[Rfam]
RNA sequence: AUAACAUUGAAUCAAUAACACACAUACAUCGACACAUGAUUCGGGGUGUUCGCGAGGGCGGAUCGAGUCAUGGGAUGUAUGGAGGCCUAAC
Numbered sequence: 001a002u003a004a005c006a007u008u009g010a011a012u013c014a015a016u017a018a019c020a021c022a023c024a025u026a027c028a029u030c031g032a033c034a035c036a037u038g039a040u041u042c043g044g045g046g047u048g049u050u051c052g053c054g055a056g057g058g059c060g061g062a063u064c065g066a067g068u069c070a071u072g073g074g075a076u077g078u079a080u081g082g083a084g085g086c087c088u089a090a091c
Stems, first nucleotide, its partner, number of pairs: 023081008035072009048063005
The family of this 91-nucleotide RNA sequence from Saliniradius amylolyticus is "t44 RNA".
Rfam classes the family as a small RNA.
It scores 84 bits against the family's covariance model.
The base pairs follow the family's consensus structure, which was predicted with LocARNA.
This family consists of a number of bacterial RNA genes of between 135 and 170 bases in length.
For this family Rfam cites "Transcriptome analysis of Escherichia coli using high-density oligonucleotide probe arrays" (Tjaden et al., Nucleic Acids Res, 2002).